RNA sequence: AGCUGCAUUACAGGGUAAACUCUCCAUUGGCAGGCAGCCACUUACAGAAUCAAUAUGCAUUAUUUAUUUUAAUCUGCUCUCUGCCAAAGGAGAUUUGCCCGGCAAUUCUUGU
Numbered sequence: 001a002g003c004u005g006c007a008u009u010a011c012a013g014g015g016u017a018a019a020c021u022c023u024c025c026a027u028u029g030g031c032a033g034g035c036a037g038c039c040a041c042u043u044a045c046a047g048a049a050u051c052a053a054u055a056u057g058c059a060u061u062a063u064u065u066a067u068u069u070u071a072a073u074c075u076g077c078u079c080u081c082u083g084c085c086a087a088a089g090g091a092g093a094u095u096u097g098c099c100c101g102g103c104a105a106u107u108c109u110u111g112u
Base pairs, nucleotide, nucleotide: 005108007106008105009104011102013100014099015098016097017096018095019094022092023091024090025089028086029085030084031083032082033081034080036078

The record is a 112-nucleotide sequence from Manihot esculenta, which matches "mir-399 microRNA precursor family" in Rfam.
On this family, see Jones-Rhoades and Bartel, Mol Cell 2004: "Computational Identification of Plant MicroRNAs and Their Targets, Including a Stress-Induced miRNA".
A search with the family's covariance model found it, with a score of 78 bits.
The base pairs follow the family's consensus structure, which was predicted with PFOLD.
The organism belongs to Manihot, within Eukaryota.
Gene Ontology terms of the family: miRNA-mediated post-transcriptional gene silencing and RISC complex.